FMN riboswitch aptamer (RFN element): a 117-nucleotide sequence from Epulopiscium sp. Nele67-Bin004. The base pairs follow the family's consensus structure, which is taken from published work. The organism belongs to Candidatus Epulonipiscium, within Bacteria.
RNA sequence: UCAAUUCUUCAGGGCAGGGUGAAAUUCCCGAUCGGCGGUAAAGUCCGUGAGUGCAUAUGCAUUGACUUGGUGUAAUUCCAAGACCGACAGUUAUAGUCUGGAUGGUAGAAGAGUUGC
Numbered sequence: 001u002c003a004a005u006u007c008u009u010c011a012g013g014g015c016a017g018g019g020u021g022a023a024a025u026u027c028c029c030g031a032u033c034g035g036c037g038g039u040a041a042a043g044u045c046c047g048u049g050a051g052u053g054c055a056u057a058u059g060c061a062u063u064g065a066c067u068u069g070g071u072g073u074a075a076u077u078c079c080a081a082g083a084c085c086g087a088c089a090g091u092u093a094u095a096g097u098c099u100g101g102a103u104g105g106u107a108g109a110a111g112a113g114u115u116g117c
Stems, first nucleotide, its partner, number of pairs: 003115008017029003031097002033086002035048004043084002051062003066082005088100003
Record summary: A search with the family's covariance model found it, with a score of 113 bits. Gene Ontology term of the family: FMN binding.